SAM riboswitch aptamer (S box leader): a 117-nucleotide RNA sequence from Sporolactobacillus putidus.
[Rfam]
RNA sequence: CUCUUAUUGAGAGUGGCGGAGGGACUGGCCCAGUGAAGCCCGGCAACCUUUCAGUGAAUUUGGAAAAGGUGCUAAUUCCAGCAAAACUUCGAUCAGCGGGGUUUUGAAAAAUAAGAG
Numbered sequence: 001c002u003c004u005u006a007u008u009g010a011g012a013g014u015g016g017c018g019g020a021g022g023g024a025c026u027g028g029c030c031c032a033g034u035g036a037a038g039c040c041c042g043g044c045a046a047c048c049u050u051u052c053a054g055u056g057a058a059u060u061u062g063g064a065a066a067a068g069g070u071g072c073u074a075a076u077u078c079c080a081g082c083a084a085a086a087c088u089u090c091g092a093u094c095a096g097c098g099g100g101g102u103u104u105u106g107a108a109a110a111a112u113a114a115g116a117g
Stems, first nucleotide, its partner, number of pairs: 001117008013041001015040003021031003025081004042073004047069002049065004077109001082106010
The source organism's lineage runs through Bacteria, Bacillati, Bacillota, Caryophanales and Sporolactobacillus.